The family of this 117-nucleotide sequence from Emticicia aquatilis is "SAM riboswitch aptamer (S box leader)".
The match comes from Rfam's covariance-model search (71 bits).
The base pairs follow the family's consensus structure, which is taken from published work.

RNA sequence: GAUUUAUACAGACGAGGGGAGAGAAUAGGCUCUACGAACCUCGGGCAACCUGUCCCGCUUCAAGCGAUAAGGUGCCAAUACCUACCGAAAUGGCGAAACCAUUCGGGCUUAUAAACC
Numbered sequence: 001g002a003u004u005u006a007u008a009c010a011g012a013c014g015a016g017g018g019g020a021g022a023g024a025a026u027a028g029g030c031u032c033u034a035c036g037a038a039c040c041u042c043g044g045g046c047a048a049c050c051u052g053u054c055c056c057g058c059u060u061c062a063a064g065c066g067a068u069a070a071g072g073u074g075c076c077a078a079u080a081c082c083u084a085c086c087g088a089a090a091u092g093g094c095g096a097a098a099c100c101a102u103u104c105g106g107g108c109u110u111a112u113a114a115a116c117c
Stems, first nucleotide, its partner, number of pairs: 001117001003115006013043005021032003026084004044076004049072002051069004080109001085106005